[Rfam]
RNA sequence: UCAACGGAGAGUUUGAUCCUGGCUCAGGACGAACGCUGGCGGCGUGCUUAACACAUGCAAGUCGAGCGGUAAGGCCACUUCGGUGGUACACGAGCGGCGAACGGGUGAGUAACACGUGAGUAAUCUGCCCUUCACUUCGGGAUAAGCCUCGGAAACGGGGUCUAAUACCGGAUAUGACUCAAGGCUGCAUGGUCUUGGGUGGAAAGUUCCGGCGGUGGAGGAUGAGCUCGCGGCCUAUCAGCUUGUUGGUGGGGUGAUGGCCUACCAAGGCUUCGACGGGUAGCCGGCCUGAGAGGGUGACCGGCCACACUGGGACUGAGACACGGCCCAGACUCCUACGGGAGGCAGCAGUGGGGAAUAUUGGACAAUGGGCGGAAGCCUGAUCCAGCAACGCCGCGUGAGGGAUGACGGCCUUCGGGUUGUAAACCUCUUUCGCCUGUGACGAAGCGCAAGUGACUUUAGCAGGUAAAGAAGCACCGGCCAACUACGUGCCAGCAGCCGCGGUAAUACGUAGGGUGCGAGCGUUGUCCGGAAUUAUUG
Dot-bracket structure: ........(((((.......))))).((((.((((((.(((((((((....(((.(((..(((..((.((...(((((....)))))..))..)))))......(((.......(((((((..((...(((((((.((((.....((((((....))))))......)))).....((((((((((....)))))))))).....((....)).)))))))..))))))))).(((....(((..((((((((.......)))))))))))......)))..((((((((....))))...))))))).(((((............))))).((((....))))...)))))).).....(.(((...(((((....))))).)))).)).))))))..((((......((((....)))).....))))...(((((((...(............)....))))))...)..(((((......(((((.....((....)).......)))))))))).))))))))))..........